[Rfam]
RNA sequence: CCAGAAAAGUUAAGUGGUUAGCUUUUGAGAGCGGACUCAAAGUGCUCCGCUAGUGGGCGCUGCCUCGCUAUCGGUGAGAGGCAGUGGCCUGCAAGACCGUCAAAUUGCGGGGAAGUCCUUAGAGCCUUUGCUACCGCCUCUGCGUGGAAACACAGCAGCAGCGCACCAGGGUAAUGACCUCGGGUAAGGUAAAAACGCAAAGGAUUGGAUUAUCCGCAGCCAAGUCCUAAGGGUGCAAACCUAUGGAUGCAGUUCAACGACUAGAAGGCGGUCGGUCUCUUAAGAGGCUUAAGAUAUAGUCUGGCCCUCCAGAGAUGGAGCC
Numbered sequence: 001c002c003a004g005a006a007a008a009g010u011u012a013a014g015u016g017g018u019u020a021g022c023u024u025u026u027g028a029g030a031g032c033g034g035a036c037u038c039a040a041a042g043u044g045c046u047c048c049g050c051u052a053g054u055g056g057g058c059g060c061u062g063c064c065u066c067g068c069u070a071u072c073g074g075u076g077a078g079a080g081g082c083a084g085u086g087g088c089c090u091g092c093a094a095g096a097c098c099g100u101c102a103a104a105u106u107g108c109g110g111g112g113a114a115g116u117c118c119u120u121a122g123a124g125c126c127u128u129u130g131c132u133a134c135c136g137c138c139u140c141u142g143c144g145u146g147g148a149a150a151c152a153c154a155g156c157a158g159c160a161g162c163g164c165a166c167c168a169g170g171g172u173a174a175u176g177a178c179c180u181c182g183g184g185u186a187a188g189g190u191a192a193a194a195a196c197g198c199a200a201a202g203g204a205u206u207g208g209a210u211u212a213u214c215c216g217c218a219g220c221c222a223a224g225u226c227c228u229a230a231g232g233g234u235g236c237a238a239a240c241c242u243a244u245g246g247a248u249g250c251a252g253u254u255c256a257a258c259g260a261c262u263a264g265a266a267g268g269c270g271g272u273c274g275g276u277c278u279c280u281u282a283a284g285a286g287g288c289u290u291a292a293g294a295u296a297u298a299g300u301c302u303g304g305c306c307c308u309c310c311a312g313a314g315a316u317g318g319a320g321c322c
Stems, first nucleotide, its partner, number of pairs: 005026009030069005095273005101267001106218006116209003219253002224248004232241003257302001259301005275288005307320005